RNA sequence: UGUCUAUGAUGAUAAAUUUUAAGGCUUGUUUCUCAAACAUUCGCAGUGGCCGCAUAAGAACUUUCGCCUUCGCCAGGUUUGAGAGUUAAUGCUGCUUUUCUCCUUCCUUGGAUGUAUGAGACG
Numbered sequence: 001u002g003u004c005u006a007u008g009a010u011g012a013u014a015a016a017u018u019u020u021a022a023g024g025c026u027u028g029u030u031u032c033u034c035a036a037a038c039a040u041u042c043g044c045a046g047u048g049g050c051c052g053c054a055u056a057a058g059a060a061c062u063u064u065c066g067c068c069u070u071c072g073c074c075a076g077g078u079u080u081g082a083g084a085g086u087u088a089a090u091g092c093u094g095c096u097u098u099u100c101u102c103c104u105u106c107c108u109u110g111g112a113u114g115u116a117u118g119a120g121a122c123g
Stems, first nucleotide, its partner, number of pairs: 001123004060086006

Shown here is a 123-nucleotide RNA sequence from Capsicum annuum, a member of the family "Small nucleolar RNA SNORD14". Gene Ontology terms of the family: nucleolus and RNA processing. A reference for the family is Samarsky et al. (1996), "An essential domain in Saccharomyces cerevisiae U14 snoRNA is absent in vertebrates, but conserved in other yeasts", Nucleic Acids Res. It scores 76 bits against the family's covariance model. The family's RNA type in Rfam is C/D-box small nucleolar RNA.